This 47-nucleotide sequence belongs to the Rfam family "eL15-Euryarchaeota ribosomal protein leader".
RNA sequence: CGGGGUACGCCCCGGUGGGAUGUGGCCCGAAAGGGCUGAACCGUAAA
Numbered sequence: 001c002g003g004g005g006u007a008c009g010c011c012c013c014g015g016u017g018g019g020a021u022g023u024g025g026c027c028c029g030a031a032a033g034g035g036c037u038g039a040a041c042c043g044u045a046a047a
Base pairs, nucleotide, nucleotide: 001014002013003012004011005010016043017042018041024037025036026035027034028033

Pairs were carried over by alignment from the consensus structure, which is taken from published work.